[Rfam]
A member of the RNA family "Ruegeria cis52 sRNA" from Rhodovulum iodosum, 179 nucleotides long. The match comes from Rfam's covariance-model search (118 bits).
RNA sequence: UUCUCAGCGCGUGGCGCAGUACGAUGGUGCUGAACUUCACCCCCUUCAACCGGGCGGUGCGGAUAUAUUGCGCGGUCAUCACCUCGGCCAUCGAGGCCCGCGUCAUCCGCGCGAUAUAGCCCAUGCCGUAAAGCGCGAUGGUGGCCACCGGCAGGGUGAAAUUCUCGAAGGUCACGCCG
Numbered sequence: 001u002u003c004u005c006a007g008c009g010c011g012u013g014g015c016g017c018a019g020u021a022c023g024a025u026g027g028u029g030c031u032g033a034a035c036u037u038c039a040c041c042c043c044c045u046u047c048a049a050c051c052g053g054g055c056g057g058u059g060c061g062g063a064u065a066u067a068u069u070g071c072g073c074g075g076u077c078a079u080c081a082c083c084u085c086g087g088c089c090a091u092c093g094a095g096g097c098c099c100g101c102g103u104c105a106u107c108c109g110c111g112c113g114a115u116a117u118a119g120c121c122c123a124u125g126c127c128g129u130a131a132a133g134c135g136c137g138a139u140g141g142u143g144g145c146c147a148c149c150g151g152c153a154g155g156g157u158g159a160a161a162u163u164c165u166c167g168a169a170g171g172u173c174a175c176g177c178c179g
Base pairs, nucleotide, nucleotide: 004141005140006139008137009136010135011134012133019126020125021124028123029122038113040111042109046105048103051100052099053098054097055075057073058072059071060070061069062068082096083095084094085093086092145179150173151172152171154165155164156163
NCBI's taxonomy places the organism under Bacteria, Pseudomonadati, Rhodobacterales, Paracoccaceae, Rhodovulum. It is annotated as a small RNA.